[Rfam]
RNA: mir-924 microRNA precursor family
RNA sequence: AAUAGAGUCUUGUGAUGUCUUGCUUAAGGGCCAUCCAACCUAGAGUCUACA
Numbered sequence: 001a002a003u004a005g006a007g008u009c010u011u012g013u014g015a016u017g018u019c020u021u022g023c024u025u026a027a028g029g030g031c032c033a034u035c036c037a038a039c040c041u042a043g044a045g046u047c048u049a050c051a
Base pairs, nucleotide, nucleotide: 003049004048005047006046008044009043010042011037012036014035015034016033017032018030019029020028021027